[Rfam]
RNA sequence: UUGUCUCCUGCUUCAACAGUGCUUGAACGGAGCAG
Numbered sequence: 001u002u003g004u005c006u007c008c009u010g011c012u013u014c015a016a017c018a019g020u021g022c023u024u025g026a027a028c029g030g031a032g033c034a035g
Stems, first nucleotide, its partner, number of pairs: 001035004006031003010028001012027005017021001
This 35-nucleotide RNA sequence from Phrynocephalus forsythii belongs to the Rfam family "Iron response element I". On this family, see Hentze et al., Science 1987: "Identification of the iron-responsive element for the translational regulation of human ferritin mRNA". A search with the family's covariance model found it, with a score of 51 bits. The base pairs follow the family's consensus structure, which is taken from published work.